[Rfam]
RNA sequence: GUGCCUUAAACUAAUGAGUAAGGAAAAUAAUAAGCCUUGGUAACGCUUGGCUACAUACGUAAGCCUCGUGCGUACGGUGCUAAUUUUUGGUGAGGUAUAAGUCGUCCCUGGGUGAGUGCUCGCCUACUUUGCGAGUGCUCAAUACCUGGGUGCUUACGAUUUGCCUC
Numbered sequence: 001g002u003g004c005c006u007u008a009a010a011c012u013a014a015u016g017a018g019u020a021a022g023g024a025a026a027a028u029a030a031u032a033a034g035c036c037u038u039g040g041u042a043a044c045g046c047u048u049g050g051c052u053a054c055a056u057a058c059g060u061a062a063g064c065c066u067c068g069u070g071c072g073u074a075c076g077g078u079g080c081u082a083a084u085u086u087u088u089g090g091u092g093a094g095g096u097a098u099a100a101g102u103c104g105u106c107c108c109u110g111g112g113u114g115a116g117u118g119c120u121c122g123c124c125u126a127c128u129u130u131g132c133g134a135g136u137g138c139u140c141a142a143u144a145c146c147u148g149g150g151u152g153c154u155u156a157c158g159a160u161u162u163g164c165c166u167c
Stems, first nucleotide, its partner, number of pairs: 004023005033052004039046001054076001056074006092167005099162007108150002110147005119135005

Shown here is a 167-nucleotide RNA from Daphnia pulex, a member of the family "U12 minor spliceosomal RNA". A search with the family's covariance model found it, with a score of 103 bits. A reference for the family is Otake et al. (2002), "The divergent U12-type spliceosome is required for pre-mRNA splicing and is essential for development in Drosophila", Mol Cell. Rfam links the family to the GO terms U12 snRNP, pre-mRNA branch point binding and mRNA branch site recognition. The source organism's lineage runs through Eukaryota, Opisthokonta, Metazoa, Cladocera and Daphnia. By type it is a spliceosomal small nuclear RNA.